[Rfam]
RNA sequence: GGAUGUGAGGGCAAUCUGGCUGCAACGUCUGUCACCCCAUUGAUCACCAGGGUUGAUUCAGCUGAUCUGGCUGGCUAGGCGGAUGUCCCCUUCCUCCCUCACUGCUCCAUGUGUGUCCCUCCAGAAGCUUCAUGCAAGUUCGAAGAGGACGACCUUUCCCAAUAGAGGAGAGGACCAAUCUUCAGUCAGGGGUAUAUGAGUAACUGCUCUCCCCUGCUAGAACCUCCAAACAAGCUCUCAAGGUCCAUUUGUAAGAGAACAUAGGGUAGUCAAGCUUCCAAGGCUCCAGACACAUCCAAGUGAGGCACUGCAUGUGGCAGUCUGCCUUUCUUU
Numbered sequence: 001g002g003a004u005g006u007g008a009g010g011g012c013a014a015u016c017u018g019g020c021u022g023c024a025a026c027g028u029c030u031g032u033c034a035c036c037c038c039a040u041u042g043a044u045c046a047c048c049a050g051g052g053u054u055g056a057u058u059c060a061g062c063u064g065a066u067c068u069g070g071c072u073g074g075c076u077a078g079g080c081g082g083a084u085g086u087c088c089c090c091u092u093c094c095u096c097c098c099u100c101a102c103u104g105c106u107c108c109a110u111g112u113g114u115g116u117c118c119c120u121c122c123a124g125a126a127g128c129u130u131c132a133u134g135c136a137a138g139u140u141c142g143a144a145g146a147g148g149a150c151g152a153c154c155u156u157u158c159c160c161a162a163u164a165g166a167g168g169a170g171a172g173g174a175c176c177a178a179u180c181u182u183c184a185g186u187c188a189g190g191g192g193u194a195u196a197u198g199a200g201u202a203a204c205u206g207c208u209c210u211c212c213c214c215u216g217c218u219a220g221a222a223c224c225u226c227c228a229a230a231c232a233a234g235c236u237c238u239c240a241a242g243g244u245c246c247a248u249u250u251g252u253a254a255g256a257g258a259a260c261a262u263a264g265g266g267u268a269g270u271c272a273a274g275c276u277u278c279c280a281a282g283g284c285u286c287c288a289g290a291c292a293c294a295u296c297c298a299a300g301u302g303a304g305g306c307a308c309u310g311c312a313u314g315u316g317g318c319a320g321u322c323u324g325c326c327u328u329u330c331u332u333u
Stems, first nucleotide, its partner, number of pairs: 001108003005102007014092001018090002025086009035074002037070003042067004047061001116173002118168004127135002140162001142160001147158003204274002209269002212266005224257003230252005298333003302328005307321005
RNA: 7SK RNA